[Rfam]
RNA sequence: GCAAGAAUGUGGGGGGGCUGGUGUUGCCAGCUGAGAAUGUAUCCGAUAGAUGCUGACCCUUAGAACCUGAUCUGGUUAACACCAGCGGAGGGAACAUCAGCUAAAAUCUC
Numbered sequence: 001g002c003a004a005g006a007a008u009g010u011g012g013g014g015g016g017g018c019u020g021g022u023g024u025u026g027c028c029a030g031c032u033g034a035g036a037a038u039g040u041a042u043c044c045g046a047u048a049g050a051u052g053c054u055g056a057c058c059c060u061u062a063g064a065a066c067c068u069g070a071u072c073u074g075g076u077u078a079a080c081a082c083c084a085g086c087g088g089a090g091g092g093a094a095c096a097u098c099a100g101c102u103a104a105a106a107u108c109u110c
Stems, first nucleotide, its partner, number of pairs: 007097004011060004016054001017031005039053004066091003072085004

The record is a 110-nucleotide RNA sequence from Viridibacillus arenosi, which matches "TPP riboswitch aptamer (THI element)" in Rfam. Gene Ontology term of the family: thiamine pyrophosphate binding.